[Rfam]
RNA sequence: CUUCAAGGAGCCCAGCCACAGCGGCCGCUCCGGGUUCCGGCCCUUGCCGUAGGUCGCCAGCAGCGCCUGCGCCUC
Numbered sequence: 001c002u003u004c005a006a007g008g009a010g011c012c013c014a015g016c017c018a019c020a021g022c023g024g025c026c027g028c029u030c031c032g033g034g035u036u037c038c039g040g041c042c043c044u045u046g047c048c049g050u051a052g053g054u055c056g057c058c059a060g061c062a063g064c065g066c067c068u069g070c071g072c073c074u075c
Stems, first nucleotide, its partner, number of pairs: 015025003031071002038065002043060002047056001049054001
A member of the RNA family "ASpks TB sRNA" from Streptomyces subrutilus, 75 nucleotides long. The match comes from Rfam's covariance-model search (79 bits). The family's RNA type in Rfam is antisense RNA. The organism belongs to Streptomyces, within Bacteria.